[Rfam]
RNA sequence: AACUUCCAGGUUGCAGCCUGACUUAAUCAGGCUGGCGGCUGGUGACUUUUGGGUCACCAGCCU
Numbered sequence: 001a002a003c004u005u006c007c008a009g010g011u012u013g014c015a016g017c018c019u020g021a022c023u024u025a026a027u028c029a030g031g032c033u034g035g036c037g038g039c040u041g042g043u044g045a046c047u048u049u050u051g052g053g054u055c056a057c058c059a060g061c062c063u
Stems, first nucleotide, its partner, number of pairs: 014034005037062010